[Rfam]
RNA sequence: GGCGUAAAGCGCGCGUAGGCGGCUAGAUAAGUCGGGUGUGAAAUCCCUCGGCUUAACCGAGGACCCGCAUCCGAUACUGCCUGGCUCGAGUCUAGGAGAGGAAAGCGGAAUUCCCAGUGUAGCGGUGAAAUGCGUAGAUAUUGGGAGGAACACCGGUGGCGAAGGCGGCUUUCCGGACUAGCACUGACGCUGAGGCGCGAAAGCUAGGGGAGCGAACGGGAUUAGAUACCCCGGUAGUCCUAGCCGUAAACGAUGGGCACUAGGUGUGGGAGGUAUUGACCCCUUCCGCGCCGAAGCUAACGCAUUAAGUGCCCCGCCUGGGGAGUACGGCCGCAAGGCUAAAACUCAAAGGAAU
Number, nucleotide and partner (000 for none) at each position: 001g318002g317003c316004g000005u000006a000007a000008a000009g315010c000011g198012c197013g196014c195015g000016u192017a000018g191019g190020c189021g000022g085023c084024u083025a082026g081027a000028u079029a000030a078031g077032u074033c073034g072035g071036g070037u069038g068039u067040g066041a000042a000043a000044u000045c000046c062047c061048u060049c059050g058051g057052c000053u000054u000055a000056a000057c051058c050059g049060a048061g047062g046063a000064c000065c000066c040067g039068c038069a037070u036071c035072c034073g033074a032075u000076a000077c031078u030079g028080c000081c026082u025083g024084g023085c022086u000087c000088g000089a185090g184091u183092c181093u180094a179095g178096g000097a000098g000099a000100g174101g173102a172103a171104a170105g169106c168107g151108g000109a000110a000111u147112u146113c145114c144115c143116a142117g141118u140119g000120u000121a000122g133123c132124g131125g000126u000127g000128a000129a000130a000131u124132g123133c122134g000135u000136a000137g000138a000139u000140a118141u117142u116143g115144g114145g113146a112147g111148g000149a000150a000151c107152a000153c000154c000155g000156g000157u000158g000159g166160c165161g000162a000163a000164g000165g160166c159167g000168g106169c105170u104171u103172u102173c101174c100175g000176g000177a000178c095179u094180a093181g092182c000183a091184c090185u089186g000187a000188c000189g020190c019191u018192g016193a000194g000195g014196c013197g012198c011199g000200a000201a000202a000203g244204c243205u242206a241207g240208g239209g000210g000211a000212g238213c237214g000215a000216a000217c233218g232219g231220g230221a000222u000223u000224a000225g000226a000227u000228a000229c000230c220231c219232c218233g217234g000235u000236a000237g213238u212239c208240c207241u206242a205243g204244c203245c000246g000247u000248a000249a000250a000251c000252g000253a000254u000255g314256g313257g312258c311259a310260c309261u000262a000263g292264g291265u290266g289267u288268g287269g286270g285271a284272g283273g282274u000275a000276u000277u000278g000279a000280c000281c000282c273283c272284u271285u270286c269287c268288g267289c266290g265291c264292c263293g000294a000295a000296g303297c302298u000299a000300a000301c000302g297303c296304a000305u000306u000307a000308a000309g260310u259311g258312c257313c256314c255315c009316g003317c002318c001319u000320g347321g346322g345323g000324a000325g000326u000327a000328c000329g340330g339331c338332c337333g000334c000335a000336a000337g332338g331339c330340u329341a000342a000343a000344a000345c322346u321347c320348a000349a000350a000351g000352g000353a000354a000355u000